[Rfam]
Shown here is a 76-nucleotide RNA sequence from Crocodylus porosus, a member of the family "Mammalian CPEB3 ribozyme". The organism belongs to Crocodylus, within Eukaryota. Rfam describes the family as follows. The mammalian CPEB3 ribozyme is a self cleaving RNA located in the second intron of the CPEB3 gene which belongs to a family of genes regulating messenger RNA polyadenylation.

RNA sequence: GUUGCACGUUCAAGCCCAAAGCAGAAGCACUUACCAUGCAGCCCUGUCAGAUUCCAAUGAAUCUGCAAAUUCUGCU
Numbered sequence: 001g002u003u004g005c006a007c008g009u010u011c012a013a014g015c016c017c018a019a020a021g022c023a024g025a026a027g028c029a030c031u032u033a034c035c036a037u038g039c040a041g042c043c044c045u046g047u048c049a050g051a052u053u054c055c056a057a058u059g060a061a062u063c064u065g066c067a068a069a070u071u072c073u074g075c076u
Base pairs, nucleotide, nucleotide: 016041020076021075022074023073024072025071026070027039028038029037048065049064050063051062052061053060054059